Small nucleolar RNA SNORD24: an 82-nucleotide RNA sequence from Dendrobium catenatum. Lineage of the source: Eukaryota > Liliopsida > Petrosaviidae > Dendrobieae > Dendrobium. Its family is annotated with RNA processing and nucleolus in the Gene Ontology. It is annotated as a C/D-box small nucleolar RNA.

[Rfam]
RNA sequence: AGCCAGUGAUGUGAUCAUUAUAUUUGCUACUCUUGAUGGUGUCAACCAUCUGAUGAACAUAACCACCAAGAUCUCUGAGGCU
Number, nucleotide and partner (000 for none) at each position: 001a082002g081003c080004c079005a000006g000007u000008g000009a000010u000011g000012u000013g000014a000015u000016c000017a000018u000019u000020a000021u000022a000023u000024u000025u000026g000027c000028u000029a000030c000031u000032c000033u000034u000035g000036a000037u000038g000039g000040u000041g000042u000043c000044a000045a000046c000047c000048a000049u000050c000051u000052g000053a000054u000055g000056a000057a000058c000059a000060u000061a000062a000063c000064c000065a000066c000067c000068a000069a000070g000071a000072u000073c000074u000075c000076u000077g000078a000079g004080g003081c002082u001